[Rfam]
Notes: Shown here is an 85-nucleotide RNA sequence from Medicago truncatula, a member of the family "MIR2617 microRNA precursor family".

RNA sequence: AUGUAGUGUAGCAAGCCCGUUGUGGAAUCACUCUGAUGAAUAUUUGUUAUUUAAUUGCUUUUGGGUAACGGGGUGUUACAAGACG
Numbered sequence: 001a002u003g004u005a006g007u008g009u010a011g012c013a014a015g016c017c018c019g020u021u022g023u024g025g026a027a028u029c030a031c032u033c034u035g036a037u038g039a040a041u042a043u044u045u046g047u048u049a050u051u052u053a054a055u056u057g058c059u060u061u062u063g064g065g066u067a068a069c070g071g072g073g074u075g076u077u078a079c080a081a082g083a084c085g
Base pairs, nucleotide, nucleotide: 002085003084004083007080008079009078010077011076012075013074016072017071018070019069020068021067
Rfam 15.1 lists 1,174 matches to the family in 2 species.